[Rfam]
RNA sequence: AUAAAACUAGGGAAUGAAGUUCUCCCAUGGCAAGCCAAAACCGCUGAUAGAGCUGAUGACUUCUGUGACAAC
Numbered sequence: 001a002u003a004a005a006a007c008u009a010g011g012g013a014a015u016g017a018a019g020u021u022c023u024c025c026c027a028u029g030g031c032a033a034g035c036c037a038a039a040a041c042c043g044c045u046g047a048u049a050g051a052g053c054u055g056a057u058g059a060c061u062u063c064u065g066u067g068a069c070a071a072c
Stems, first nucleotide, its partner, number of pairs: 010026004016063006043053003
Shown here is a 72-nucleotide sequence from Clostridium sp. CAG:299, a member of the family "Fluoride riboswitch aptamer (crcB RNA motif)". The base pairs follow the family's consensus structure, which is taken from published work. It scores 48 bits against the family's covariance model.